[Rfam]
Rfam assigns this 79-nucleotide RNA sequence from Myotis brandtii to the family "mir-9198 microRNA precursor family". NCBI's taxonomy places the organism under Eukaryota, Teleostomi, Euteleostomi, Dipnotetrapodomorpha, Myotis. The family has 6 seed sequences and 64 matches in Rfam 15.1. It scores 94 bits against the family's covariance model. Pairs were carried over by alignment from the consensus structure, which was predicted with RNAalifold.

RNA sequence: GCCACUGCUUGCACCUGCUGCUGGUGCCCAGCACUGGUCCUGAUCACUUGGCACCAUCAGCGGGUGCAAGCGGCGGCUG
Dot-bracket structure: ....((((((((((((((((.(((((((.....................))))))).))))))))))))))))......